[Rfam]
RNA sequence: GUGGUCAGGAGAAAGGCUGCUGAGUGGUUGAGCCCGGUCAGCCGGGCACGGCCUUGUAGCAGUUGGCCUUGAUCCCCGACCUAGAGUAAACCCCCAGGAAAGCUCCUUUCUGGGAUUUGAACUUUGCAGUAGCAGGUGUGAGCAUUCUAGCAGCAGUUUGAUGAUCAUGUAUGAUACUGCAAACAAGA
Numbered sequence: 001g002u003g004g005u006c007a008g009g010a011g012a013a014a015g016g017c018u019g020c021u022g023a024g025u026g027g028u029u030g031a032g033c034c035c036g037g038u039c040a041g042c043c044g045g046g047c048a049c050g051g052c053c054u055u056g057u058a059g060c061a062g063u064u065g066g067c068c069u070u071g072a073u074c075c076c077c078g079a080c081c082u083a084g085a086g087u088a089a090a091c092c093c094c095c096a097g098g099a100a101a102g103c104u105c106c107u108u109u110c111u112g113g114g115a116u117u118u119g120a121a122c123u124u125u126g127c128a129g130u131a132g133c134a135g136g137u138g139u140g141a142g143c144a145u146u147c148u149a150g151c152a153g154c155a156g157u158u159u160g161a162u163g164a165u166c167a168u169g170u171a172u173g174a175u176a177c178u179g180c181a182a183a184c185a186a187g188a
Stems, first nucleotide, its partner, number of pairs: 003081004008076002015068004019063004025058001026053005032047003093114003097109003123183009133173002139167003143163004149158003